The record is a 95-nucleotide RNA sequence from Vitis vinifera, which matches "Small nucleolar RNA Z103" in Rfam. Lineage of the source: Eukaryota > Streptophyta > Euphyllophyta > Vitaceae > Vitis. The base pairs follow the family's consensus structure, which was predicted with PFOLD. For this family Rfam cites "The high diversity of snoRNAs in plants: identification and comparative study of 120 snoRNA genes from Oryza sativa" (Chen et al., Nucleic Acids Res, 2003). By type it is a C/D-box small nucleolar RNA.
RNA sequence: AUGGAUGUGAUGAUUAUUUCCCCAGAUGAACGACGUUGAUUAUACUGUGCUAUUUCUUUCUCUUUUUGAGAUUCCAAGCCAUUACUCUGAUCCAU
Number, nucleotide and partner (000 for none) at each position: 001a095002u094003g093004g092005a091006u000007g000008u000009g000010a000011u000012g000013a000014u000015u000016a000017u000018u000019u000020c000021c000022c000023c000024a000025g000026a000027u000028g000029a000030a000031c000032g000033a000034c000035g000036u000037u000038g000039a000040u000041u000042a000043u000044a000045c000046u000047g000048u000049g000050c000051u000052a000053u000054u000055u000056c000057u000058u000059u000060c000061u000062c000063u000064u000065u000066u000067u000068g000069a000070g000071a000072u000073u000074c000075c000076a000077a000078g000079c000080c000081a000082u000083u000084a000085c000086u000087c000088u000089g000090a000091u005092c004093c003094a002095u001